This 450-nucleotide RNA from Xenorhabdus szentirmaii belongs to the Rfam family "cspA thermoregulator".
The match comes from Rfam's covariance-model search (194 bits).
The family has 15 seed sequences and 2,094 matches in Rfam 15.1.
Gene Ontology terms of the family: regulation of translation and response to temperature stimulus.
Taxonomically the source falls in Xenorhabdus szentirmaii (Bacteria, Pseudomonadati, Enterobacterales, Morganellaceae).

RNA sequence: CUUGGCCUGAUUAACAGACCUACUUUAUGUACGACAUAUUGAGUUAAUGAGUUAUGUGUAAGUGCUAUCUUCGGUAGCCUUUGUUGACCGUUUCCUUCUUAGUGCCUCCAUAAGUAAUAGCUGAUACUGGCCAACACAUGCCCGAGGUGGCGAAAUUUUUUUGAUAUAUAGGAAAGUCAAAUGUCUGACAAAAUGAAAGGUCAAGUGAAGUGGUUCAACGAGUCUAAAGGCUUUGGUUUCAUCACUCCAGCUGAUGGUAGCAAAGACGUGUUCGUUCACUUCUCUGCCAUUCAGGGUAACGGUUUCAAAACUCUGGGUGAAGGCCAGAACGUAGAAUUCACCAUCGAGAAUGGUGCCAAAGGCCCAGCAGCUGCAAACGUAACUGCUAUCUAAUUUAGCCUUUCUGCCUUAUUUAAGCUCGCCGGGAUAAAAUACAAUGGCGGGCUUUUU
Numbered sequence: 001c002u003u004g005g006c007c008u009g010a011u012u013a014a015c016a017g018a019c020c021u022a023c024u025u026u027a028u029g030u031a032c033g034a035c036a037u038a039u040u041g042a043g044u045u046a047a048u049g050a051g052u053u054a055u056g057u058g059u060a061a062g063u064g065c066u067a068u069c070u071u072c073g074g075u076a077g078c079c080u081u082u083g084u085u086g087a088c089c090g091u092u093u094c095c096u097u098c099u100u101a102g103u104g105c106c107u108c109c110a111u112a113a114g115u116a117a118u119a120g121c122u123g124a125u126a127c128u129g130g131c132c133a134a135c136a137c138a139u140g141c142c143c144g145a146g147g148u149g150g151c152g153a154a155a156u157u158u159u160u161u162u163g164a165u166a167u168a169u170a171g172g173a174a175a176g177u178c179a180a181a182u183g184u185c186u187g188a189c190a191a192a193a194u195g196a197a198a199g200g201u202c203a204a205g206u207g208a209a210g211u212g213g214u215u216c217a218a219c220g221a222g223u224c225u226a227a228a229g230g231c232u233u234u235g236g237u238u239u240c241a242u243c244a245c246u247c248c249a250g251c252u253g254a255u256g257g258u259a260g261c262a263a264a265g266a267c268g269u270g271u272u273c274g275u276u277c278a279c280u281u282c283u284c285u286g287c288c289a290u291u292c293a294g295g296g297u298a299a300c301g302g303u304u305u306c307a308a309a310a311c312u313c314u315g316g317g318u319g320a321a322g323g324c325c326a327g328a329a330c331g332u333a334g335a336a337u338u339c340a341c342c343a344u345c346g347a348g349a350a351u352g353g354u355g356c357c358a359a360a361g362g363c364c365c366a367g368c369a370g371c372u373g374c375a376a377a378c379g380u381a382a383c384u385g386c387u388a389u390c391u392a393a394u395u396u397a398g399c400c401u402u403u404c405u406g407c408c409u410u411a412u413u414u415a416a417g418c419u420c421g422c423c424g425g426g427a428u429a430a431a432a433u434a435c436a437a438u439g440g441c442g443g444g445c446u447u448u449u450u
Base pairs, nucleotide, nucleotide: 004020005019007017008016009015028249029248031246043239046238047237048236055230057228064225069220071218073216074215076214078212082183083182084181085180094172095171096170097168099166102127103126104125140151141150142149185200186199252346253345254344255343256342257341265273266272276334278332279331281329283328284327285326286325287323288322290317291316292315293314294313295312351366352365353364355363356362357361367389369387370386371385373383392410393409396406397405398404415447416446417445418444419443420442421441422440423439424438